[Rfam]
RNA sequence: GGGGCCAUCAAAUGGCUGUGAAAUGUUGCUUUUAGGCCUUCAGUCCUUCAUAUCACAGCCACCUUUGAUGAGCUUCA
Numbered sequence: 001g002g003g004g005c006c007a008u009c010a011a012a013u014g015g016c017u018g019u020g021a022a023a024u025g026u027u028g029c030u031u032u033u034a035g036g037c038c039u040u041c042a043g044u045c046c047u048u049c050a051u052a053u054c055a056c057a058g059c060c061a062c063c064u065u066u067g068a069u070g071a072g073c074u075u076c077a
Stems, first nucleotide, its partner, number of pairs: 006070007013061009024052003

Description:
mir-2 microRNA precursor family: a 77-nucleotide sequence from Tropilaelaps mercedesae. For this family Rfam cites "microRNAs: tiny regulators with great potential" (Ambros, Cell, 2001). The base pairs follow the family's consensus structure, which was predicted with PFOLD. Gene Ontology terms of the family: miRNA-mediated post-transcriptional gene silencing and RISC complex. Lineage of the source: Eukaryota > Chelicerata > Monogynaspida > Laelapidae > Tropilaelaps.